A member of the RNA family "Eukaryotic large subunit ribosomal RNA" from Desmophyllum pertusum, 410 nucleotides of a longer RNA. The match comes from Rfam's covariance-model search (3305 bits).
[Rfam]
RNA sequence: CGAAUGGACUCAGCAAUGCGCCCUUUGAGAUUCAGCCGGUGGGUGGGAUCGGCCGGUGGUUUGCGGAUCCGAACGGACCGCGGUCUCCGGCUCGUUCCUCCCCGCCGUCGCACUUCUCUUGGGCGCGCGUCAACGUCGGUUGGGACCGGGUCUUAAAGUUGCCGGGAAGGUAGGUAUGGACCUCCGGGUUCGUUCUAUUAGAGCCCGGCCUCUCAUGGCUCGAGCCCGACCGAGGAGUCGCAGCGCAUGCCUCUUGUGGCUAGGGUCCCGUCCUUCCGGCCGGUUGUCGAAUGCGGUGGACUGCUUGCAGUGCUCCGCGACUGCUGCCGGUCGUUGGGGUGGUGAUCUCGUACCAUGCGCUUGGGAUGUUGGCGGUCAUAUGGGUCCAUCCGACCCGUCUUGAAACACGG
Numbered sequence: 001c002g003a004a005u006g007g008a009c010u011c012a013g014c015a016a017u018g019c020g021c022c023c024u025u026u027g028a029g030a031u032u033c034a035g036c037c038g039g040u041g042g043g044u045g046g047g048a049u050c051g052g053c054c055g056g057u058g059g060u061u062u063g064c065g066g067a068u069c070c071g072a073a074c075g076g077a078c079c080g081c082g083g084u085c086u087c088c089g090g091c092u093c094g095u096u097c098c099u100c101c102c103c104g105c106c107g108u109c110g111c112a113c114u115u116c117u118c119u120u121g122g123g124c125g126c127g128c129g130u131c132a133a134c135g136u137c138g139g140u141u142g143g144g145a146c147c148g149g150g151u152c153u154u155a156a157a158g159u160u161g162c163c164g165g166g167a168a169g170g171u172a173g174g175u176a177u178g179g180a181c182c183u184c185c186g187g188g189u190u191c192g193u194u195c196u197a198u199u200a201g202a203g204c205c206c207g208g209c210c211u212c213u214c215a216u217g218g219c220u221c222g223a224g225c226c227c228g229a230c231c232g233a234g235g236a237g238u239c240g241c242a243g244c245g246c247a248u249g250c251c252u253c254u255u256g257u258g259g260c261u262a263g264g265g266u267c268c269c270g271u272c273c274u275u276c277c278g279g280c281c282g283g284u285u286g287u288c289g290a291a292u293g294c295g296g297u298g299g300a301c302u303g304c305u306u307g308c309a310g311u312g313c314u315c316c317g318c319g320a321c322u323g324c325u326g327c328c329g330g331u332c333g334u335u336g337g338g339g340u341g342g343u344g345a346u347c348u349c350g351u352a353c354c355a356u357g358c359g360c361u362u363g364g365g366a367u368g369u370u371g372g373c374g375g376u377c378a379u380a381u382g383g384g385u386c387c388a389u390c391c392g393a394c395c396c397g398u399c400u401u402g403a404a405a406c407a408c409g410g
Base pairs, nucleotide, nucleotide: 001392002391004389005388006387007386008385009384010383011382012381017127018126019125020124021123022122023121128374129373130372131371132370133369134368135367136366137365395410396409397408398407